Small nucleolar RNA SNORA44: a 130-nucleotide RNA from Perca fluviatilis. ACA44 is a member of the H/ACA class of snoRNA that guide the sites of modification of uridines to pseudouridines. A reference for the family is Huttenhofer et al. (2001), "RNomics: an experimental approach that identifies 201 candidates for novel, small, non-messenger RNAs in mouse", EMBO J. Rfam links the family to the GO terms RNA processing and nucleolus. A search with the family's covariance model found it, with a score of 68 bits.

[Rfam]
RNA sequence: CAGCAUGCUAUCCUAAGGACCGGGGCUUGUUUGUAGCUCUAGGUUCUCCAAGUGCGUGCAAGAUAAUGGGGUGGUCUUUGACUGUUGUGGCCCCUUAUGCCACCAGCAGCCACUCAACUAUCCUACAGCU
Numbered sequence: 001c002a003g004c005a006u007g008c009u010a011u012c013c014u015a016a017g018g019a020c021c022g023g024g025g026c027u028u029g030u031u032u033g034u035a036g037c038u039c040u041a042g043g044u045u046c047u048c049c050a051a052g053u054g055c056g057u058g059c060a061a062g063a064u065a066a067u068g069g070g071g072u073g074g075u076c077u078u079u080g081a082c083u084g085u086u087g088u089g090g091c092c093c094c095u096u097a098u099g100c101c102a103c104c105a106g107c108a109g110c111c112a113c114u115c116a117a118c119u120a121u122c123c124u125a126c127a128g129c130u
Base pairs, nucleotide, nucleotide: 013042014041018038020036022034024032069123070122071121072120073119074118084110085109087103088102089101090100